[Rfam]
RNA sequence: GAGAAAAGGCAGAGGUAACUGAAAAGUUUGAGAAAUACUCUUAGAACCUGAUCUAGUUAAUACUAGCGUAGGAAGUCCUUAUAAUUUUAUAU
Numbered sequence: 001g002a003g004a005a006a007a008g009g010c011a012g013a014g015g016u017a018a019c020u021g022a023a024a025a026g027u028u029u030g031a032g033a034a035a036u037a038c039u040c041u042u043a044g045a046a047c048c049u050g051a052u053c054u055a056g057u058u059a060a061u062a063c064u065a066g067c068g069u070a071g072g073a074a075g076u077c078c079u080u081a082u083a084a085u086u087u088u089a090u091a092u
Stems, first nucleotide, its partner, number of pairs: 006080004011041004016035001017028004047072004053066004
Dot-bracket structure: .....((((.((((.(((((....))))......)..)))).....((((..((((......))))..))))....))))............
Rfam assigns this 92-nucleotide RNA from Mesoplasma syrphidae to the family "TPP riboswitch aptamer (THI element)". Rfam describes the family as follows. Vitamin B(1) in its active form thiamin pyrophosphate (TPP) is an essential coenzyme that is synthesised by coupling of pyrimidine and thiazole moieties in bacteria. A search with the family's covariance model found it, with a score of 68 bits. Gene Ontology term of the family: thiamine pyrophosphate binding.